The record is a 130-nucleotide RNA sequence from Actinoplanes sp. N902-109, which matches "SAM riboswitch aptamer (S box leader)" in Rfam. Lineage of the source: Bacteria > Actinomycetota > Micromonosporales > Micromonosporaceae > Actinoplanes. The family's consensus secondary structure is taken from published work.
Nucleotides: 130
Stems, first nucleotide, its partner, number of pairs: 003128006013044005022033003027102004045094004050090002053086003098122001103119006
Number, partner (000 for none) and nucleotide at each position: 001000a002000c003128c004127u005126c006125a007124u008123c009000c010000a011000g012000a013044g014043g015042g016041g017040u018000a019000u020000c021000a022033g023032g024031g025000a026000u027102a028101c029100g030099g031024c032023c033022c034000g035000a036000c037000g038000a039000c040017g041016c042015c043014c044013c045094g046093g047092c048091a049000a050090c051089c052000a053086c054085c055084g056000c057000g058000c059000u060000c061000g062000a063000c064000u065000c066000g067000a068000u069000g070000a071000c072000g073000a074000g075000g076000c077000u078000c079000g080000c081000g082000c083000c084055c085054g086053g087000c088000a089051g090050g091048u092047g093046c094045u095000a096000a097000u098122u099030c100029c101028g102027u103119c104118c105117c106116g107115g108114u109000c110000c111000a112000g113000c114108g115107c116106c117105g118104g119103g120000g121000a122098a123008g124007a125006u126005g127004a128003g129000a130000a